Overview
TPP riboswitch aptamer (THI element): a 130-nucleotide RNA sequence from Kangiella koreensis. It scores 61 bits against the family's covariance model.

[Rfam]
RNA sequence: AGCAUUCCCGAGGGGCGGCUUUUGCCUGAGAAUUGGCUCAUUGCGGUUACUGUUUGUAAUUGCUUGAGCGCCAGACCCUUUGAACCUGAUCCGGGUUAUACCGGCGUAGGGACAGGGAGUGCAGACGAUU
Dot-bracket structure: .....((((.((((..(((....)))........(((................................)))...)))).....((((..((((......))))..))))....))))............